A member of the RNA family "Xanthomonas sRNA sX9" from Paucibacter sp. KBW04, 77 nucleotides long.
A search with the family's covariance model found it, with a score of 44 bits.
The base pairs follow the family's consensus structure, which was predicted with RNAalifold.
Taxonomically the source falls in Roseateles (Bacteria, Pseudomonadota, Betaproteobacteria, Sphaerotilaceae).

RNA sequence: ACGUACCUGAAGUACGUUCCGGUUCCUCCGCUCCGUCCGCCUAGCCUGACAGUCGCUCGCUACAAAAAUCUUCAUCC
Numbered sequence: 001a002c003g004u005a006c007c008u009g010a011a012g013u014a015c016g017u018u019c020c021g022g023u024u025c026c027u028c029c030g031c032u033c034c035g036u037c038c039g040c041c042u043a044g045c046c047u048g049a050c051a052g053u054c055g056c057u058c059g060c061u062a063c064a065a066a067a068a069u070c071u072u073c074a075u076c077c
Base pairs, nucleotide, nucleotide: 002016003015004014005013006012020035021034022033025030047074048073049072051071052070